Rfam assigns this 93-nucleotide RNA from Eragrostis curvula to the family "Small nucleolar RNA R64/Z200 family". Pairs were carried over by alignment from the consensus structure, which was predicted with PFOLD. Rfam 15.1 lists 748 matches to the family in 228 species. A search with the family's covariance model found it, with a score of 70 bits.

[Rfam]
RNA sequence: GAAAUGCGAUGAUGAAUCAUGAAAACUACUCGCAUGUCAGACUUCAGAGAUGCAACUGCAUUAAUGAGAAGAUUUUCAUAUUCUGAGCCUUAU
Numbered sequence: 001g002a003a004a005u006g007c008g009a010u011g012a013u014g015a016a017u018c019a020u021g022a023a024a025a026c027u028a029c030u031c032g033c034a035u036g037u038c039a040g041a042c043u044u045c046a047g048a049g050a051u052g053c054a055a056c057u058g059c060a061u062u063a064a065u066g067a068g069a070a071g072a073u074u075u076u077c078a079u080a081u082u083c084u085g086a087g088c089c090u091u092a093u
Base pairs, nucleotide, nucleotide: 001093003091004090006088007087049062050061051060052059